[Rfam]
RNA sequence: UUCGUUCAUCUUUGUUUGCAGAUAACAAUAUCUAGAUAGUUAAAUAGCUUAUAAAGACGGAAGUAGGAUUUAGAGCCGAAGGAACGCGCC
Dot-bracket structure: ..(((((.(((((((...................................)))))))..[.....((........))....)))))]...
Source information: Glutamine riboswitch aptamer (glnA leader): a 90-nucleotide RNA from Rivularia sp. PCC 7116. For this family Rfam cites "Bacterial aptamers that selectively bind glutamine" (Ames and Breaker, RNA Biol, 2011). Its family is annotated with glutamine binding in the Gene Ontology.